Small nucleolar RNA snoR136: a 141-nucleotide sequence from Vanilla planifolia.
On this family, see Chen and Wu, Nucleic Acids Res 2009: "Mining small RNA sequencing data: a new approach to identify small nucleolar RNAs in Arabidopsis".
The base pairs follow the family's consensus structure, which was predicted with mfold.
Taxonomically the source falls in Vanilla (Eukaryota, Viridiplantae, Tracheophyta, Euphyllophyta).
It scores 59 bits against the family's covariance model.
[Rfam]
RNA sequence: UUUGCUUCGCAGUUUAGUUUUUCAGCCUAUUUGACGAUGUCAAUGUUGUAUAGGCCUGAAAAGUGCGAAGCAAGAGCAAAGGCUUCCCUCGCUAUCCACUGCAUCUUUUGUUUUGCAUUUGGACGUUGGGAAACCACAACA
Numbered sequence: 001u002u003u004g005c006u007u008c009g010c011a012g013u014u015u016a017g018u019u020u021u022u023c024a025g026c027c028u029a030u031u032u033g034a035c036g037a038u039g040u041c042a043a044u045g046u047u048g049u050a051u052a053g054g055c056c057u058g059a060a061a062a063g064u065g066c067g068a069a070g071c072a073a074g075a076g077c078a079a080a081g082g083c084u085u086c087c088c089u090c091g092c093u094a095u096c097c098a099c100u101g102c103a104u105c106u107u108u109u110g111u112u113u114u115g116c117a118u119u120u121g122g123a124c125g126u127u128g129g130g131a132a133a134c135c136a137c138a139a140c141a
Base pairs, nucleotide, nucleotide: 001074002073003072004071005070008067009066010065011064013062016057017056025055026054027053028052029051030050034049035048036047082134084132085131086130087129088128090125091124095123096122097121098120